[Rfam]
RNA sequence: AGUGGUGUCCGGGCCCCUCUGACGAAAGUGGCGGCGCUUUCGUGAUGUCGGCACCUGUU
Number, nucleotide and partner (000 for none) at each position: 001a000002g000003u000004g000005g000006u053007g052008u000009c051010c050011g049012g048013g000014c000015c000016c000017c000018u000019c000020u000021g000022a043023c042024g041025a040026a039027a038028g037029u036030g000031g000032c000033g000034g000035c000036g029037c028038u027039u026040u025041c024042g023043u022044g000045a000046u000047g000048u012049c011050g010051g009052c007053a006054c000055c000056u000057g000058u000059u000
RNA: terC RNA